[Rfam]
RNA sequence: CAGGCGGUAUUCUGAACGAAGCUGCACUGUCGCAAUUAAACCAAAGCUUUUUGUCAAGGAAUGAAUGACGCAUUCUGCUCUGAGCCGUAGGGACCGAGACAGAAGG
Numbered sequence: 001c002a003g004g005c006g007g008u009a010u011u012c013u014g015a016a017c018g019a020a021g022c023u024g025c026a027c028u029g030u031c032g033c034a035a036u037u038a039a040a041c042c043a044a045a046g047c048u049u050u051u052u053g054u055c056a057a058g059g060a061a062u063g064a065a066u067g068a069c070g071c072a073u074u075c076u077g078c079u080c081u082g083a084g085c086c087g088u089a090g091g092g093a094c095c096g097a098g099a100c101a102g103a104a105g106g
Stems, first nucleotide, its partner, number of pairs: 001029003004025005010020002075102003078098003082094001085092002

Record summary
The family of this 106-nucleotide sequence from Paenibacillus oryzae is "pan motif". By type it is a cis-regulatory element. The base pairs follow the family's consensus structure, which is taken from published work. Taxonomically the source falls in Paenibacillus (Bacteria, Bacillati, Bacillota, Paenibacillaceae).